Annotation: A member of the RNA family "U1 spliceosomal RNA" from Pogona vitticeps, 164 nucleotides long. The family's RNA type in Rfam is spliceosomal small nuclear RNA. The family has 100 seed sequences and 40,184 matches in Rfam 15.1. The match comes from Rfam's covariance-model search (131 bits).

RNA sequence: ACUCAUGCCUGGCAGGGGAGAUACCAUGAUCAUGAAAGUGGUUUUCUCAGGGUAAGGCUCAUACAUUGUACUUUGGGUGUUCUGAUCCCUGUGAUUUCCCCAAAUGUGGGAAAAUCAACUGCCUAAUUUGUGGUAGUGGGGGACUGCGUUUGUGGUUUCCCCUG
Numbered sequence: 001a002c003u004c005a006u007g008c009c010u011g012g013c014a015g016g017g018g019a020g021a022u023a024c025c026a027u028g029a030u031c032a033u034g035a036a037a038g039u040g041g042u043u044u045u046c047u048c049a050g051g052g053u054a055a056g057g058c059u060c061a062u063a064c065a066u067u068g069u070a071c072u073u074u075g076g077g078u079g080u081u082c083u084g085a086u087c088c089c090u091g092u093g094a095u096u097u098c099c100c101c102a103a104a105u106g107u108g109g110g111a112a113a114a115u116c117a118a119c120u121g122c123c124u125a126a127u128u129u130g131u132g133g134u135a136g137u138g139g140g141g142g143a144c145u146g147c148g149u150u151u152g153u154g155g156u157u158u159c160c161c162c163u164g
Base pairs, nucleotide, nucleotide: 012122013121014120015119016048017047018046019045020044021043023042024041025040026039027038049090050089051088052087054086056083057082060079061078062077064075092117093116094115095113096112097111099109100108138163139162140161141160142159143158147154148153